[Rfam]
This 332-nucleotide RNA sequence from Streptococcus equinus belongs to the Rfam family "Bacterial RNase P class B".
Clan: RNaseP clan.
The literature on the family includes a 1998 paper in Annu Rev Biochem by Frank and Pace, "Ribonuclease P: unity and diversity in a tRNA processing ribozyme".
The sequence is in the family's curated seed alignment.

RNA sequence: GAGGAAAGUCCGGGCUAGCACCGGCUGUGAUGCUGGUAGUGUUUGUGCUAGGCGAACAAAUAAGCCUAGGGAUGUGUUUGACACAUUACGGCGAGUGAAAAGGCUAAGUCCUUGGAUAUGCCAGAGUAGCUCUGAAAGUGCCACAGUGACGAAGUUUUUAUGGAAACGUAAAAAGUGGAACGCGGUAAACCCCUCAAGCUAGCAACCCAAACUUUGGUAGGGGCAUGGGAUAGUUGGAAACGAACAAGCUAUCCUGACUGUUGACAAACAGUAGACAGAUGAUUAUCGAAGGAGAUAAUACCUAGUUAUUUCUGGAACAAAACACGGCUUAU
Number, nucleotide and partner (000 for none) at each position: 001g000002a000003g000004g000005a000006a330007a329008g328009u000010c327011c326012g325013g000014g323015c202016u201017a200018g199019c198020a037021c036022c035023g034024g033025c032026u000027g000028u000029g000030a000031u000032g025033c024034u023035g022036g021037u020038a000039g000040u000041g000042u000043u197044u196045g195046u000047g193048c069049u068050a067051g066052g065053c064054g000055a000056a000057c000058a000059a000060a000061u000062a000063a000064g053065c052066c051067u050068a049069g048070g089071g087072a086073u085074g084075u083076g082077u000078u000079u000080g000081a000082c076083a075084c074085a073086u072087u071088a000089c070090g192091g191092c000093g132094a131095g130096u129097g000098a000099a000100a000101a000102g122103g121104c120105u000106a000107a000108g117109u116110c115111c000112u000113u000114g000115g110116a109117u108118a000119u000120g104121c103122c102123a000124g000125a000126g000127u000128a000129g096130c095131u094132c093133u000134g000135a000136a000137a000138g190139u189140g186141c185142c184143a000144c000145a000146g000147u000148g000149a000150c000151g000152a000153a000154g000155u174156u173157u172158u171159u170160a169161u168162g167163g000164a000165a000166a000167c162168g161169u160170a159171a158172a157173a156174a155175g000176u000177g000178g000179a000180a000181c000182g000183c000184g142185g141186u140187a000188a000189a139190c138191c091192c090193c047194u000195c045196a044197a043198g019199c018200u017201a016202g015203c000204a000205a000206c222207c221208c220209a000210a000211a000212c000213u000214u000215u000216g000217g000218u000219a000220g208221g207222g206223g000224c000225a000226u256227g255228g254229g253230a252231u251232a250233g000234u000235u000236g000237g000238a000239a000240a000241c000242g000243a000244a000245c000246a000247a000248g000249c000250u232251a231252u230253c229254c228255u227256g226257a272258c271259u270260g269261u268262u267263g000264a000265c000266a000267a262268a261269c260270a259271g258272u257273a000274g000275a000276c000277a000278g000279a000280u000281g000282a000283u000284u000285a000286u000287c000288g000289a000290a000291g313292g312293a311294g310295a309296u308297a307298a306299u305300a000301c000302c000303u000304a000305g299306u298307u297308a296309u295310u294311u293312c292313u291314g000315g000316a000317a000318c000319a000320a000321a000322a000323c014324a000325c012326g011327g010328c008329u007330u006331a000332u000
Ribonuclease P (RNase P) is a ubiquitous endoribonuclease, found in archaea, bacteria and eukarya as well as chloroplasts and mitochondria. Its best characterised activity is the generation of mature 5'-ends of tRNAs by cleaving the 5'-leader elements of precursor-tRNAs.